[Rfam]
RNA sequence: AAUUCUCUGAGAUGCUCGUCAGCGGGUCAGUCCCCUGAGCCGAUAUUUGAAAUCACUUAGAAUGUGGCUAUCUGUUUAUGGUGUGCAUGCCUGGUCAGCUAGGGAAAGCCUAGCCACCAGGAAGCCUAAAGUUAACGAUACUACGUUCACCUUGAACCCGGGGUUCAAGGGUUACAGCCCGCAAAAGCAUCUUGGAGGCCCU
Numbered sequence: 001a002a003u004u005c006u007c008u009g010a011g012a013u014g015c016u017c018g019u020c021a022g023c024g025g026g027u028c029a030g031u032c033c034c035c036u037g038a039g040c041c042g043a044u045a046u047u048u049g050a051a052a053u054c055a056c057u058u059a060g061a062a063u064g065u066g067g068c069u070a071u072c073u074g075u076u077u078a079u080g081g082u083g084u085g086c087a088u089g090c091c092u093g094g095u096c097a098g099c100u101a102g103g104g105a106a107a108g109c110c111u112a113g114c115c116a117c118c119a120g121g122a123a124g125c126c127u128a129a130a131g132u133u134a135a136c137g138a139u140a141c142u143a144c145g146u147u148c149a150c151c152u153u154g155a156a157c158c159c160g161g162g163g164u165u166c167a168a169g170g171g172u173u174a175c176a177g178c179c180c181g182c183a184a185a186a187g188c189a190u191c192u193u194g195g196a197g198g199c200c201c202u
Base pairs, nucleotide, nucleotide: 004198005197006196007195008194009193010192011191012190013189014188015187019184032171033170034169036167037166038165039164040163041162060148061147062146064144065143066142067141071138073137074136075135076134078132079131085125086124090121091120092119093118094117

Record summary:
Shown here is a 202-nucleotide RNA sequence from Arsenophonus sp. ENCA, a member of the family "6S / SsrS RNA". The match comes from Rfam's covariance-model search (98 bits).